[Rfam]
RNA sequence: ACGAGGUGCCUUGCUGAUUGUACGUGCUGGAAGCGUCAGAACUCCCAUCAUCGCAGGUCAGCAGGCACCUCUUCUCGUUCCACAUCCACAGGACGCAAGUCACUCGGUGGAUCGAG
Numbered sequence: 001a002c003g004a005g006g007u008g009c010c011u012u013g014c015u016g017a018u019u020g021u022a023c024g025u026g027c028u029g030g031a032a033g034c035g036u037c038a039g040a041a042c043u044c045c046c047a048u049c050a051u052c053g054c055a056g057g058u059c060a061g062c063a064g065g066c067a068c069c070u071c072u073u074c075u076c077g078u079u080c081c082a083c084a085u086c087c088a089c090a091g092g093a094c095g096c097a098a099g100u101c102a103c104u105c106g107g108u109g110g111a112u113c114g115a116g
Stems, first nucleotide, its partner, number of pairs: 003071009015060003019056001021055001023053002025050002028047001030045001032043002096114001098112001100110003

Shown here is a 116-nucleotide sequence, a member of the family "Actinobacteria sRNA Ms_IGR-7". On this family, see Li et al., RNA 2013: "Identification of small RNAs in Mycobacterium smegmatis using heterologous Hfq". The base pairs follow the family's consensus structure. By type it is a small RNA. The match comes from Rfam's covariance-model search (49 bits).